[Rfam]
RNA sequence: UUGCAAUCUUAUCUACGCUAGAUAUAACUAUAGUUAAGAAGAAAGAAAACUUCAAAAGAUAAGUAAUCGCCAUGAAUACUGAUAAUAUUCUU
Numbered sequence: 001u002u003g004c005a006a007u008c009u010u011a012u013c014u015a016c017g018c019u020a021g022a023u024a025u026a027a028c029u030a031u032a033g034u035u036a037a038g039a040a041g042a043a044a045g046a047a048a049a050c051u052u053c054a055a056a057a058g059a060u061a062a063g064u065a066a067u068c069g070c071c072a073u074g075a076a077u078a079c080u081g082a083u084a085a086u087a088u089u090c091u092u
Base pairs, nucleotide, nucleotide: 008063009062010061011060012059013058038053039052040051041050072092074090075089076088077087078086
Rfam assigns this 92-nucleotide RNA sequence to the family "PGK RNA". The family's RNA type in Rfam is cis-regulatory element. The family's consensus secondary structure is taken from published work.